RNA sequence: UGUUAUCGAAGGAGUUAGACCUUAAUUCAUAACA
Numbered sequence: 001u002g003u004u005a006u007c008g009a010a011g012g013a014g015u016u017a018g019a020c021c022u023u024a025a026u027u028c029a030u031a032a033c034a
Base pairs, nucleotide, nucleotide: 001034002033003032004031005030006029008028009023010022011021012020

The record is a 34-nucleotide RNA sequence, which matches "S4-Flavobacteria ribosomal protein leader" in Rfam. A reference for the family is Eckert and Weinberg (2020), "Discovery of 20 novel ribosomal leader candidates in bacteria and archaea", BMC Microbiol. It is annotated as a cis-regulatory leader. It is one of the family's seed sequences.